This 37-nucleotide sequence from Synechococcus sp. JA-2-3B'a(2-13) belongs to the Rfam family "CRISPR RNA direct repeat element".

RNA sequence: UGUUCCCCCUUCGGGGGGAUCCUUAGAAAUUGGAAAA
Numbered sequence: 001u002g003u004u005c006c007c008c009c010u011u012c013g014g015g016g017g018g019a020u021c022c023u024u025a026g027a028a029a030u031u032g033g034a035a036a037a
Base pairs, nucleotide, nucleotide: 004018005017006016007015008014
The base pairs follow the family's consensus structure, which was predicted with WAR. The match comes from Rfam's covariance-model search (50 bits).